[Rfam]
RNA sequence: CCAGUCGGCCGGGCGGCCGCUCUUCCGCGAGGGAGGGAGGAAAGUCCGGGCUCCAGGGAGAAACGGUGGCGGCUAACGGCCGCCGGGGGUGACCCCAGGGAAAGUGCCACAGAAAGCAAACCGCCGGGGCAUGCUCCGGUCAGGGUGAAAGGGUGCGGUAAGAGCGCACCGCGUUGCCGGCAACGGGAACGGCAGGGCAAACCCCACCGGGAGCAAAACCGAAUAGGGACGGCGCGCACCGGGCAACCGGUGCAGGGAUCUCCUCCCGGCCGUCCGGGUUGGUUGCACGAGGCACGGCGCGAGCCGGGCCCCAGAGGAAUGGCCGCCACGUCGGCGUUGAAAGACGCAGGCCAUACAGAACCCGGCUUACAGGCCGACUGGAUUC
Numbered sequence: 001c002c003a004g005u006c007g008g009c010c011g012g013g014c015g016g017c018c019g020c021u022c023u024u025c026c027g028c029g030a031g032g033g034a035g036g037g038a039g040g041a042a043a044g045u046c047c048g049g050g051c052u053c054c055a056g057g058g059a060g061a062a063a064c065g066g067u068g069g070c071g072g073c074u075a076a077c078g079g080c081c082g083c084c085g086g087g088g089g090u091g092a093c094c095c096c097a098g099g100g101a102a103a104g105u106g107c108c109a110c111a112g113a114a115a116g117c118a119a120a121c122c123g124c125c126g127g128g129g130c131a132u133g134c135u136c137c138g139g140u141c142a143g144g145g146u147g148a149a150a151g152g153g154u155g156c157g158g159u160a161a162g163a164g165c166g167c168a169c170c171g172c173g174u175u176g177c178c179g180g181c182a183a184c185g186g187g188a189a190c191g192g193c194a195g196g197g198c199a200a201a202c203c204c205c206a207c208c209g210g211g212a213g214c215a216a217a218a219c220c221g222a223a224u225a226g227g228g229a230c231g232g233c234g235c236g237c238a239c240c241g242g243g244c245a246a247c248c249g250g251u252g253c254a255g256g257g258a259u260c261u262c263c264u265c266c267c268g269g270c271c272g273u274c275c276g277g278g279u280u281g282g283u284u285g286c287a288c289g290a291g292g293c294a295c296g297g298c299g300c301g302a303g304c305c306g307g308g309c310c311c312c313a314g315a316g317g318a319a320u321g322g323c324c325g326c327c328a329c330g331u332c333g334g335c336g337u338u339g340a341a342a343g344a345c346g347c348a349g350g351c352c353a354u355a356c357a358g359a360a361c362c363c364g365g366c367u368u369a370c371a372g373g374c375c376g377a378c379u380g381g382a383u384u385c
Stems, first nucleotide, its partner, number of pairs: 001381010011370001012327007020037007042368003046365005051213004060262002064209005069083005084098001085096004099204002104202002106198003121144002123140007152170006171193001172191004177186003217284004227275006255267004291310003295306004
Rfam assigns this 385-nucleotide RNA sequence from Rhizobiales bacterium PAR1 to the family "Bacterial RNase P class A". A search with the family's covariance model found it, with a score of 293 bits. Pairs were carried over by alignment from the consensus structure, which is taken from published work.